[Rfam]
RNA sequence: CGACCUUUGCCACACUCUGGCCAUUACCGUCCGAUUUCGAUCGGAAUUACAAGCUCCACGGUAACGGCCUAUUUUGACGCAAAGAAGAUAAACCUUUUGACCAACUACUCACCGCGAUAUCUUUUUGGAGGGAAUUCGUUCUUUCUGAGGUGGAUAUAGUGGUCCAUCUUUUAUGGUCUACAU
Numbered sequence: 001c002g003a004c005c006u007u008u009g010c011c012a013c014a015c016u017c018u019g020g021c022c023a024u025u026a027c028c029g030u031c032c033g034a035u036u037u038c039g040a041u042c043g044g045a046a047u048u049a050c051a052a053g054c055u056c057c058a059c060g061g062u063a064a065c066g067g068c069c070u071a072u073u074u075u076g077a078c079g080c081a082a083a084g085a086a087g088a089u090a091a092a093c094c095u096u097u098u099g100a101c102c103a104a105c106u107a108c109u110c111a112c113c114g115c116g117a118u119a120u121c122u123u124u125u126u127g128g129a130g131g132g133a134a135u136u137c138g139u140u141c142u143u144u145c146u147g148a149g150g151u152g153g154a155u156a157u158a159g160u161g162g163u164c165c166a167u168c169u170u171u172u173a174u175g176g177u178c179u180a181c182a183u
Stems, first nucleotide, its partner, number of pairs: 007082003019069004025063004031044005099178004112162004117157006
Dot-bracket structure: ......(((.........((((..((((..(((((....)))))...............))))..))))..........)))................((((.........((((.((((((.............................)))))).))))............)))).....
RNA: Small nucleolar RNA snR80